[Rfam]
RNA sequence: UGGUUCAAUGAUGAGACCAUGGAAUAAGCGCUGGGUGCAGUGCCUGACACCUGUGAGGAGUCAUUCCAUGCUGCCUUCCUUCUGAGAACACA
Numbered sequence: 001u002g003g004u005u006c007a008a009u010g011a012u013g014a015g016a017c018c019a020u021g022g023a024a025u026a027a028g029c030g031c032u033g034g035g036u037g038c039a040g041u042g043c044c045u046g047a048c049a050c051c052u053g054u055g056a057g058g059a060g061u062c063a064u065u066c067c068a069u070g071c072u073g074c075c076u077u078c079c080u081u082c083u084g085a086g087a088a089c090a091c092a
Stems, first nucleotide, its partner, number of pairs: 001092002003089002